[Rfam]
Nucleotides: 081
Base pairs, nucleotide, nucleotide: 002081003080004079006077
Number, partner (000 for none) and nucleotide at each position: 001000g002081a003080u004079g005000a006077g007000a008000a009000a010000u011000c012000u013000c014000c015000g016000g017000a018000a019000u020000c021000g022000c023000u024000g025000u026000a027000c028000u029000u030000u031000g032000u033000u034000g035000a036000u037000g038000a039000u040000u041000c042000c043000c044000u045000c046000g047000a048000a049000c050000c051000c052000u053000u054000c055000u056000g057000u058000a059000u060000c061000u062000g063000a064000u065000g066000a067000c068000u069000g070000c071000g072000g073000c074000u075000g076000u077006u078000c079004c080003g081002u